A member of the RNA family "Small nucleolar RNA SNORA51" from Castor canadensis, 132 nucleotides long. The family's consensus secondary structure was predicted with PFOLD. It is annotated as an H/ACA-box small nucleolar RNA. It scores 113 bits against the family's covariance model. Gene Ontology terms of the family: RNA processing and nucleolus. Rfam's curators write: ACA51 is a member of the H/ACA class of snoRNA that guide the sites of modification of uridines to pseudouridines.
RNA sequence: GGAUUCCUGGUGCUUACCACAGGUUGUGUUCUGACACUGACUAUGUAGAAAGAUGAACCUAAGUGAACUUAUCCCACAUACACCUUAGGCCAGGCCCUGUGUCAGGUCUGUAUUAUGAAUGGGAAGACAUGG
Numbered sequence: 001g002g003a004u005u006c007c008u009g010g011u012g013c014u015u016a017c018c019a020c021a022g023g024u025u026g027u028g029u030u031c032u033g034a035c036a037c038u039g040a041c042u043a044u045g046u047a048g049a050a051a052g053a054u055g056a057a058c059c060u061a062a063g064u065g066a067a068c069u070u071a072u073c074c075c076a077c078a079u080a081c082a083c084c085u086u087a088g089g090c091c092a093g094g095c096c097c098u099g100u101g102u103c104a105g106g107u108c109u110g111u112a113u114u115a116u117g118a119a120u121g122g123g124a125a126g127a128c129a130u131g132g
Stems, first nucleotide, its partner, number of pairs: 002059001004057003008053001021042002026037004072124005086110003090106002093103003